Rfam assigns this 79-nucleotide RNA sequence from Euhalothece natronophila to the family "CyVA-1 RNA". From the family's description: Cyanobacteria, Acidobacteria (1 example), Verrucomicrobia (1 example).

RNA sequence: UUUCACCAUCAGUUGUUUUGCUGUUUGGACUGAGAAUUUUCUUCUGAAGGAGAACGACCGUCAAGAAGAAAAGGGGCUA
Numbered sequence: 001u002u003u004c005a006c007c008a009u010c011a012g013u014u015g016u017u018u019u020g021c022u023g024u025u026u027g028g029a030c031u032g033a034g035a036a037u038u039u040u041c042u043u044c045u046g047a048a049g050g051a052g053a054a055c056g057a058c059c060g061u062c063a064a065g066a067a068g069a070a071a072a073g074g075g076g077c078u079a
Stems, first nucleotide, its partner, number of pairs: 001079001004076001006074001009033004038071008
Rfam classes the family as a small RNA.
Pairs were carried over by alignment from the consensus structure, which is taken from published work.